A member of the RNA family "Small nucleolar RNA R11/Z151" from Leersia perrieri, 97 nucleotides long.
Gene Ontology terms of the family: nucleolus and RNA processing.
On this family, see Barneche et al., J Mol Biol 2001: "Identification of 66 box C/D snoRNAs in Arabidopsis thaliana: extensive gene duplications generated multiple isoforms predicting new ribosomal RNA 2'-O-methylation sites".
The match comes from Rfam's covariance-model search (61 bits).
The base pairs follow the family's consensus structure, which was predicted with PFOLD.
RNA sequence: GAGCUUGUGAUGAUUCAGGUCCGAAAGGAUCUUAGCGGAUUUCUGUGAGGCAAUUGUGUUAGAGUUAAUCGCUUAAUGCUGUGACACACUGAAGCUU
Numbered sequence: 001g002a003g004c005u006u007g008u009g010a011u012g013a014u015u016c017a018g019g020u021c022c023g024a025a026a027g028g029a030u031c032u033u034a035g036c037g038g039a040u041u042u043c044u045g046u047g048a049g050g051c052a053a054u055u056g057u058g059u060u061a062g063a064g065u066u067a068a069u070c071g072c073u074u075a076a077u078g079c080u081g082u083g084a085c086a087c088a089c090u091g092a093a094g095c096u097u
Stems, first nucleotide, its partner, number of pairs: 001097005